[Rfam]
RNA sequence: AUGCUCUGCCCGUGAUGAGAACGUGUUGGUAGGGACACCUGAGAAGGGUGAUGAGUGCCAACGUAUCUGAGCUGGGCAU
Numbered sequence: 001a002u003g004c005u006c007u008g009c010c011c012g013u014g015a016u017g018a019g020a021a022c023g024u025g026u027u028g029g030u031a032g033g034g035a036c037a038c039c040u041g042a043g044a045a046g047g048g049u050g051a052u053g054a055g056u057g058c059c060a061a062c063g064u065a066u067c068u069g070a071g072c073u074g075g076g077c078a079u
Base pairs, nucleotide, nucleotide: 001079002078003077004076005075
RNA: Small nucleolar RNA SNORD74